The family of this 166-nucleotide RNA from Sulfoacidibacillus thermotolerans is "glmS glucosamine-6-phosphate activated ribozyme aptamer". Taxonomically the source falls in Sulfoacidibacillus (Bacteria, Bacillati, Bacillota, Caryophanales). The family's consensus secondary structure is taken from published work. A search with the family's covariance model found it, with a score of 72 bits. Gene Ontology terms of the family: catalytic activity and regulation of gene expression. On this family, see Winkler et al., Nature 2004: "Control of gene expression by a natural metabolite-responsive ribozyme".
[Rfam]
RNA sequence: UGGUUUUCGAAAGCGCCAGAACUGUCUACAUGUGAAGCGUGUGACAGUGGACGCGGUGGAGGUUAGCGAAAGAUUCGGCGGGUGCCUCCCGAUGUGAUCCGCAUUGUUACGGUGAGCCGCAAAACUGUGGGGUGACCUACACGACAAAGGCGAGUCAGGAUGAUUU
Numbered sequence: 001u002g003g004u005u006u007u008c009g010a011a012a013g014c015g016c017c018a019g020a021a022c023u024g025u026c027u028a029c030a031u032g033u034g035a036a037g038c039g040u041g042u043g044a045c046a047g048u049g050g051a052c053g054c055g056g057u058g059g060a061g062g063u064u065a066g067c068g069a070a071a072g073a074u075u076c077g078g079c080g081g082g083u084g085c086c087u088c089c090c091g092a093u094g095u096g097a098u099c100c101g102c103a104u105u106g107u108u109a110c111g112g113u114g115a116g117c118c119g120c121a122a123a124a125c126u127g128u129g130g131g132g133u134g135a136c137c138u139a140c141a142c143g144a145c146a147a148a149g150g151c152g153a154g155u156c157a158g159g160a161u162g163a164u165u166u
Base pairs, nucleotide, nucleotide: 021048022047023046024045025044026043029039058089059088060087061086062085067077068076069075090106091105092104093103094102095101111156112155113154116151117150126141127140128139129138130137131136